[Rfam]
RNA sequence: CUUUUUCCCCCCAGGCCUGUUGGUGUAUACUACAGAGAAGCCUCCAAGGUUCCGGGGGUGAAAUGC
Numbered sequence: 001c002u003u004u005u006u007c008c009c010c011c012c013a014g015g016c017c018u019g020u021u022g023g024u025g026u027a028u029a030c031u032a033c034a035g036a037g038a039a040g041c042c043u044c045c046a047a048g049g050u051u052c053c054g055g056g057g058g059u060g061a062a063a064u065g066c
Base pairs, nucleotide, nucleotide: 002065003063007058008057009056010055014051015050018046019045022042023041024040025033026032